[Rfam]
About this RNA: This 161-nucleotide RNA from Molossus molossus belongs to the Rfam family "U1 spliceosomal RNA". Rfam links the family to the GO terms pre-mRNA 5'-splice site binding, mRNA 5'-splice site recognition and U1 snRNP. By type it is a spliceosomal small nuclear RNA. Clan: U1 clan.
RNA sequence: ACAUUUACCUGGCAGGGGAGGUACCAUGAUCACGAAGGUGGUUUUCCCAGGGCGAGGCUUAUCCAUUGCACUCUGGGUGUGUUGACUCCUUUGAUUACCCCAAAGGUGGGAAACUCAACUGCAUAAUUUGUGGUAGUGGGGACUGUGUUCCCGCUCUCCAA
Numbered sequence: 001a002c003a004u005u006u007a008c009c010u011g012g013c014a015g016g017g018g019a020g021g022u023a024c025c026a027u028g029a030u031c032a033c034g035a036a037g038g039u040g041g042u043u044u045u046c047c048c049a050g051g052g053c054g055a056g057g058c059u060u061a062u063c064c065a066u067u068g069c070a071c072u073c074u075g076g077g078u079g080u081g082u083u084g085a086c087u088c089c090u091u092u093g094a095u096u097a098c099c100c101c102a103a104a105g106g107u108g109g110g111a112a113a114c115u116c117a118a119c120u121g122c123a124u125a126a127u128u129u130g131u132g133g134u135a136g137u138g139g140g141g142a143c144u145g146u147g148u149u150c151c152c153g154c155u156c157u158c159c160a161a
Stems, first nucleotide, its partner, number of pairs: 012122004016048006023042005049090004054086001056083003060079005092117003095113001096111001099109002137160006144153002